Annotation
c-di-GMP-II-GAG riboswitch aptamer: an 84-nucleotide RNA sequence from Aeromicrobium sp. Its family is annotated with cyclic-di-GMP binding and regulation of gene expression in the Gene Ontology. The match comes from Rfam's covariance-model search (41 bits). On this family, see Weinberg et al., Proc Natl Acad Sci U S A 2017: "Bioinformatic analysis of riboswitch structures uncovers variant classes with altered ligand specificity".
RNA sequence: CUGCGCAUGGCAAGCACAGAUCCGACGGCAUCACUGGUCGCCUAUGGCCGUCGGGGAGCUAGGGCGAAACCGGGCCGCACCCUU
Number, nucleotide and partner (000 for none) at each position: 001c000002u000003g082004c000005g080006c000007a000008u077009g076010g075011c074012a000013a060014g059015c058016a000017c000018a000019g000020a000021u000022c054023c053024g052025a051026c050027g049028g048029c047030a000031u000032c000033a000034c000035u000036g071037g070038u067039c066040g065041c064042c063043u000044a000045u000046g000047g029048c028049c027050g026051u025052c024053g023054g022055g000056g000057a000058g015059c014060u013061a000062g000063g042064g041065c040066g039067a038068a000069a000070c037071c036072g000073g000074g011075c010076c009077g008078c000079a000080c005081c000082c003083u000084u000